[Rfam]
RNA sequence: UCUGUAUCACCUUGCAGAAAAGACCCUAUCAGUAUUGCCUCUGCUUUUACCAGCACUAACAGAGUAGUGCAAUAUUGCUUAUAGGGUCUUGACUCUAAGGGAUG
Numbered sequence: 001u002c003u004g005u006a007u008c009a010c011c012u013u014g015c016a017g018a019a020a021a022g023a024c025c026c027u028a029u030c031a032g033u034a035u036u037g038c039c040u041c042u043g044c045u046u047u048u049a050c051c052a053g054c055a056c057u058a059a060c061a062g063a064g065u066a067g068u069g070c071a072a073u074a075u076u077g078c079u080u081a082u083a084g085g086g087u088c089u090u091g092a093c094u095c096u097a098a099g100g101g102a103u104g
Base pairs, nucleotide, nucleotide: 020090021089022088023087024086025085026084027083028082029081030077031076032075033074034073035072036071037070038069041067042066043065044064045062
mir-454 microRNA precursor family: a 104-nucleotide sequence from Kryptolebias marmoratus. For this family Rfam cites "Deep sequencing of the small RNA transcriptome of normal and malignant human B cells identifies hundreds of novel microRNAs" (Jima et al., Blood, 2010). Rfam 15.1 lists 696 matches to the family in 601 species. NCBI's taxonomy places the organism under Eukaryota, Metazoa, Ctenosquamata, Rivulidae, Kryptolebias. Pairs were carried over by alignment from the consensus structure, which was predicted with RNAalifold. Its family is annotated with RISC complex and miRNA-mediated post-transcriptional gene silencing in the Gene Ontology.